Rfam assigns this 131-nucleotide sequence from Scophthalmus maximus to the family "Small nucleolar RNA SNORA44". The family's consensus secondary structure was predicted with PFOLD. About the family: ACA44 is a member of the H/ACA class of snoRNA that guide the sites of modification of uridines to pseudouridines. Clan: SNORA44 clan. It is annotated as an H/ACA-box small nucleolar RNA. NCBI's taxonomy places the organism under Eukaryota, Metazoa, Euteleostomi, Pleuronectoidei, Scophthalmus.
[Rfam]
RNA sequence: CAGCAUGCUAUCCUAAGGACCGGGGCUUGUCUGUAGUCUUAGGUGCUCCAAGUGCGUGCAAGAGAACGGGAUGGUCUUUGACUGUUGUGGCCCUGUUCUGCCACCAGCAGCCACUCUACUGUCCUACAGAU
Numbered sequence: 001c002a003g004c005a006u007g008c009u010a011u012c013c014u015a016a017g018g019a020c021c022g023g024g025g026c027u028u029g030u031c032u033g034u035a036g037u038c039u040u041a042g043g044u045g046c047u048c049c050a051a052g053u054g055c056g057u058g059c060a061a062g063a064g065a066a067c068g069g070g071a072u073g074g075u076c077u078u079u080g081a082c083u084g085u086u087g088u089g090g091c092c093c094u095g096u097u098c099u100g101c102c103a104c105c106a107g108c109a110g111c112c113a114c115u116c117u118a119c120u121g122u123c124c125u126a127c128a129g130a131u
Stems, first nucleotide, its partner, number of pairs: 013042002018038003022034001024032001069124006084111002087104004